c-di-AMP riboswitch aptamer (ydaO/yuaA leader): a 145-nucleotide RNA sequence from Nonomuraea aridisoli.
Rfam links the family to the GO terms cyclic-di-AMP binding and regulation of gene expression.
A search with the family's covariance model found it, with a score of 86 bits.
Rfam's curators write: This family represents a conserved RNA structure found upstream of the ydaO and yuaA genes in Bacillus subtilis and related genes in other bacteria.
[Rfam]
RNA sequence: GGCGUGCGGCCGCCGAAUCCGCGUCACGCGGAACCGGGGACCCACCUUUCUGGGGUGAAUCGGACACCAGCGCCACGCUGCGCCCGUAGGGCACUUCCAAGCCCGAACCCGUCAGCUAACCCGGUAGGCGGCAUGGAAGCUAGGA
Number, nucleotide and partner (000 for none) at each position: 001g000002g000003c000004g000005u000006g000007c000008g000009g000010c000011c130012g129013c128014c127015g000016a000017a000018u032019c031020c030021g029022c028023g000024u000025c000026a000027c000028g022029c021030g020031g019032a018033a125034c124035c123036g122037g121038g120039g000040a000041c000042c000043c052044a051045c000046c000047u000048u000049u000050c000051u044052g043053g110054g109055g108056u000057g000058a000059a000060u000061c086062g085063g084064a000065c000066a000067c000068c000069a000070g000071c000072g000073c000074c000075a000076c000077g000078c000079u000080g000081c000082g000083c000084c063085c062086g061087u000088a000089g104090g103091g102092c101093a000094c000095u000096u000097c000098c000099a000100a000101g092102c091103c090104c089105g000106a000107a000108c055109c054110c053111g000112u000113c000114a000115g000116c000117u000118a000119a000120c038121c037122c036123g035124g034125u033126a000127g014128g013129c012130g011131g000132c000133a000134u000135g000136g000137a000138a000139g000140c000141u000142a000143g000144g000145a000